[Rfam]
RNA: GP20-b RNA
Organism: Carboxydothermus hydrogenoformans
RNA sequence: UUUUGGUAUUGUAGGCGUAAAAGAACAAGACAUCACCGGACGCGACCGGGUUAAAAAGCGAA
Numbered sequence: 001u002u003u004u005g006g007u008a009u010u011g012u013a014g015g016c017g018u019a020a021a022a023g024a025a026c027a028a029g030a031c032a033u034c035a036c037c038g039g040a041c042g043c044g045a046c047c048g049g050g051u052u053a054a055a056a057a058g059c060g061a062a
Stems, first nucleotide, its partner, number of pairs: 001017001003015002009028004036049003